[Rfam]
This 218-nucleotide sequence from Chitinophaga oryziterrae belongs to the Rfam family "Group II catalytic intron D1-D4-6". The pairing is the family consensus, mapped onto this sequence. About the family: Group II introns are found in rRNA, tRNA and mRNA of organelles in fungi, plants and protists, and also in mRNA in bacteria. The organism belongs to Chitinophaga, within Bacteria.
RNA sequence: AAACAGCCCUGCCCGAUAAGGUCUAGUCAACCACCGGAAGCGAGUCUUGCGUAGUUAUUAGAAAUGGUGGCACGAAGCGUAGACAGCGACUGCUGACGGUAUGCUAUUGAACCUCGAAACUGUCCUCAACGUUGAAGCUUUAGUUGUUCGAAAUGCUAAGGCAACAUCUAACCUGCGUUAUUGACGAGCAGGGGCGAUUCGACCGGGGUCUUAGAACA
Number, nucleotide and partner (000 for none) at each position: 001a000002a000003a000004c000005a000006g000007c000008c000009c000010u000011g000012c000013c037014c036015g035016a000017u000018a000019a000020g032021g031022u030023c000024u187025a000026g185027u184028c000029a000030a022031c021032c020033a000034c000035c015036g014037g013038a000039a000040g087041c086042g000043a000044g084045u083046c082047u081048u079049g078050c074051g073052u072053a000054g000055u070056u069057a068058u067059u066060a065061g000062a000063a000064a000065u060066g059067g058068u057069g056070g055071c000072a052073c051074g050075a000076a000077g000078c049079g048080u000081a047082g046083a045084c044085a000086g041087c040088g000089a000090c000091u000092g000093c000094u000095g000096a000097c000098g000099g000100u000101a000102u000103g000104c000105u000106a000107u000108u000109g210110a000111a209112c208113c207114u206115c205116g204117a000118a000119a000120c000121u000122g000123u000124c000125c000126u000127c000128a000129a000130c000131g203132u202133u201134g200135a199136a198137g162138c161139u160140u000141u000142a157143g156144u155145u000146g000147u000148u000149c000150g000151a000152a000153a000154u000155g144156c143157u142158a000159a000160g139161g138162c137163a000164a000165c000166a000167u197168c196169u000170a000171a000172c000173c192174u190175g189176c188177g000178u000179u000180a000181u000182u000183g000184a027185c026186g000187a024188g176189c175190a174191g000192g173193g000194g000195c000196g168197a167198u136199u135200c134201g133202a132203c131204c116205g115206g114207g113208g112209u111210c109211u000212u000213a000214g000215a000216a000217c000218a000